[Rfam]
Rfam assigns this 457-nucleotide sequence from Fusarium pseudograminearum to the family "RNase MRP". Its family is annotated with rRNA processing, ribonuclease MRP complex and ribonuclease MRP activity in the Gene Ontology. The family's RNA type in Rfam is ribozyme. Lineage of the source: Eukaryota > leotiomyceta > sordariomyceta > Hypocreomycetidae > Fusarium pseudograminearum.

RNA sequence: CCCUCGCUCAAUAGAUCGCUAUUCGAAGCUCACAAACAGAGACACUGUGAUUUAUCGCAGCGUCUCGAUCAUUUUUUCAUGGCUUUGGGAGAAAGUCCCCGGACGUCUUCGUUUCGACGAAGUUUGCGGAAACGCGCCGCCAUAGAAGCACUGCGGUUGACCUUUGCGCCCAGGCCCUCGCCCUGCGCUGGCCCUGCCCUCCGCUACAUCUGCUUGCCAACGGCCUUUGUCUCAACGGUCUUUGCCGCCCUCGGUCCUCUUGGAUGAAGAUAUGAGUCCGCUGUCGAGGUGCGGUGAGUUCUGGACGGACGGGUUGUCUGGCGGGUGGAUGGUGGGUAGACGCUCGGUGCUCGUGCGUGUGGCAUCGGGUCGCUUAGGAUUUGUUGUCGAGAUUGACAGGUAUGCGAUUGCCUAGCGAAAGCUUGGUUACUCAAUGGGGCUCAUUCUUGAUGCGAGG
Numbered sequence: 001c002c003c004u005c006g007c008u009c010a011a012u013a014g015a016u017c018g019c020u021a022u023u024c025g026a027a028g029c030u031c032a033c034a035a036a037c038a039g040a041g042a043c044a045c046u047g048u049g050a051u052u053u054a055u056c057g058c059a060g061c062g063u064c065u066c067g068a069u070c071a072u073u074u075u076u077u078c079a080u081g082g083c084u085u086u087g088g089g090a091g092a093a094a095g096u097c098c099c100c101g102g103a104c105g106u107c108u109u110c111g112u113u114u115c116g117a118c119g120a121a122g123u124u125u126g127c128g129g130a131a132a133c134g135c136g137c138c139g140c141c142a143u144a145g146a147a148g149c150a151c152u153g154c155g156g157u158u159g160a161c162c163u164u165u166g167c168g169c170c171c172a173g174g175c176c177c178u179c180g181c182c183c184u185g186c187g188c189u190g191g192c193c194c195u196g197c198c199c200u201c202c203g204c205u206a207c208a209u210c211u212g213c214u215u216g217c218c219a220a221c222g223g224c225c226u227u228u229g230u231c232u233c234a235a236c237g238g239u240c241u242u243u244g245c246c247g248c249c250c251u252c253g254g255u256c257c258u259c260u261u262g263g264a265u266g267a268a269g270a271u272a273u274g275a276g277u278c279c280g281c282u283g284u285c286g287a288g289g290u291g292c293g294g295u296g297a298g299u300u301c302u303g304g305a306c307g308g309a310c311g312g313g314u315u316g317u318c319u320g321g322c323g324g325g326u327g328g329a330u331g332g333u334g335g336g337u338a339g340a341c342g343c344u345c346g347g348u349g350c351u352c353g354u355g356c357g358u359g360u361g362g363c364a365u366c367g368g369g370u371c372g373c374u375u376a377g378g379a380u381u382u383g384u385u386g387u388c389g390a391g392a393u394u395g396a397c398a399g400g401u402a403u404g405c406g407a408u409u410g411c412c413u414a415g416c417g418a419a420a421g422c423u424u425g426g427u428u429a430c431u432c433a434a435u436g437g438g439g440c441u442c443a444u445u446c447u448u449g450a451u452g453c454g455a456g457g
Stems, first nucleotide, its partner, number of pairs: 002457006008450004014409006023089001024087006039066005045060006094441002097439004125136004339381002343377002346374003349370004353365004411426002414423003